[Rfam]
RNA sequence: CAAUUUAAGCAGGAGCACCCGCUUCUCACCUGAUUGACGCAUAAGCAGUUGGCAGGUUUGAACGUAAGAACAAAUAGCUGAUUUACGCUGUUUAAUGCGGGUAUGUACAUCAUACCCGCAUUUUUUAUUGUGU
Numbered sequence: 001c002a003a004u005u006u007a008a009g010c011a012g013g014a015g016c017a018c019c020c021g022c023u024u025c026u027c028a029c030c031u032g033a034u035u036g037a038c039g040c041a042u043a044a045g046c047a048g049u050u051g052g053c054a055g056g057u058u059u060g061a062a063c064g065u066a067a068g069a070a071c072a073a074a075u076a077g078c079u080g081a082u083u084u085a086c087g088c089u090g091u092u093u094a095a096u097g098c099g100g101g102u103a104u105g106u107a108c109a110u111c112a113u114a115c116c117c118g119c120a121u122u123u124u125u126u127a128u129u130g131u132g133u
Base pairs, nucleotide, nucleotide: 011026012025013024014023015022016021028057029056030055036050037049038048039046040045096120097119098118099117100116101115102114103113104112105111
A member of the RNA family "Ribosomal protein L20 leader" from Bacillus sp. PK3_68, 133 nucleotides long. Its family is annotated with regulation of gene expression in the Gene Ontology. By type it is a cis-regulatory leader. The source organism's lineage runs through Bacteria, Bacillota, Bacilli, Caryophanales and Bacillus. From the family's description: This family is a putative r-protein leader autoregulatory structure found in B. subtilis and other low-GC Gram-positive bacteria. It is located in the 5' untranslated regions of mRNAs encoding initiation factor 3 followed by ribosomal proteins L35 and L20 (infC-rpmI-rplT). A Rho-independent transcription terminator structure that is probably involved in regulation is included at the 3' end. Pairs were carried over by alignment from the consensus structure, which was predicted with CMfinder.